[Rfam]
RNA sequence: UGAAGUGAUAGAGGUGCAAAAACCAUUAGUACAAAUUUUGAGGAGAGUGAGCUCCGUUGAUAGUUUGGAAAGGGGAAUUUGCCGAAGUAACUUGUUACUCAUAAAACUUGUUACUGGGCCUGUAUUGAAUAAAUGCAGGACUGUCGUAUAGUUAUAAGACUAUAUGGAGGGCUAUCUUACGC
Numbered sequence: 001u002g003a004a005g006u007g008a009u010a011g012a013g014g015u016g017c018a019a020a021a022a023c024c025a026u027u028a029g030u031a032c033a034a035a036u037u038u039u040g041a042g043g044a045g046a047g048u049g050a051g052c053u054c055c056g057u058u059g060a061u062a063g064u065u066u067g068g069a070a071a072g073g074g075g076a077a078u079u080u081g082c083c084g085a086a087g088u089a090a091c092u093u094g095u096u097a098c099u100c101a102u103a104a105a106a107c108u109u110g111u112u113a114c115u116g117g118g119c120c121u122g123u124a125u126u127g128a129a130u131a132a133a134u135g136c137a138g139g140a141c142u143g144u145c146g147u148a149u150a151g152u153u154a155u156a157a158g159a160c161u162a163u164a165u166g167g168a169g170g171g172c173u174a175u176c177u178u179a180c181g182c
Stems, first nucleotide, its partner, number of pairs: 007176005016082005023075002032067006086115006094107003116142002119139008144167007
Background: This 182-nucleotide sequence from Anaerobacillus isosaccharinicus belongs to the Rfam family "Lysine riboswitch aptamer". Lineage of the source: Bacteria > Bacillota > Caryophanales > Bacillaceae > Anaerobacillus. It scores 125 bits against the family's covariance model. Riboswitches are metabolite binding domains within certain messenger RNAs that serve as precision sensors for their corresponding targets.